Shown here is a 212-nucleotide sequence from Pseudarthrobacter sp. BIM B-2242, a member of the family "c-di-AMP riboswitch aptamer (ydaO/yuaA leader)". Gene Ontology terms of the family: regulation of gene expression and cyclic-di-AMP binding. The organism belongs to Pseudarthrobacter, within Bacteria. A search with the family's covariance model found it, with a score of 60 bits.
RNA sequence: UCAGGUGCAAAGUCACCAACUGGCAGAGGCGGAGGAACCACAACCGGCAGUCAAAAAGCUGCCUUGGGGUGAAGUCCGUCAGCAGCAAGCCUUUCCAGCGGAAGAAUCUCCCGGGAUACCCCUGCGCCAAAUGCUUGCCACGGCGGACCGGGUCUUUGAACUCUCUGACCCGAAUCCGACAGCUAACUUCGCAGGCUAUCCAGAGAGGAACA
Numbered sequence: 001u002c003a004g005g006u007g008c009a010a011a012g013u014c015a016c017c018a019a020c021u022g023g024c025a026g027a028g029g030c031g032g033a034g035g036a037a038c039c040a041c042a043a044c045c046g047g048c049a050g051u052c053a054a055a056a057a058g059c060u061g062c063c064u065u066g067g068g069g070u071g072a073a074g075u076c077c078g079u080c081a082g083c084a085g086c087a088a089g090c091c092u093u094u095c096c097a098g099c100g101g102a103a104g105a106a107u108c109u110c111c112c113g114g115g116a117u118a119c120c121c122c123u124g125c126g127c128c129a130a131a132u133g134c135u136u137g138c139c140a141c142g143g144c145g146g147a148c149c150g151g152g153u154c155u156u157u158g159a160a161c162u163c164u165c166u167g168a169c170c171c172g173a174a175u176c177c178g179a180c181a182g183c184u185a186a187c188u189u190c191g192c193a194g195g196c197u198a199u200c201c202a203g204a205g206a207g208g209a210a211c212a
Stems, first nucleotide, its partner, number of pairs: 001027002029192006039066002067177003075147006150171004